[Rfam]
RNA sequence: CCUUGACAAUCGCAUAAUGCGGUUGACAUAACCCAGACAAGGAGACAAACAUG
Numbered sequence: 001c002c003u004u005g006a007c008a009a010u011c012g013c014a015u016a017a018u019g020c021g022g023u024u025g026a027c028a029u030a031a032c033c034c035a036g037a038c039a040a041g042g043a044g045a046c047a048a049a050c051a052u053g
Stems, first nucleotide, its partner, number of pairs: 002041004007025005
RNA: Mu-gpT-DE RNA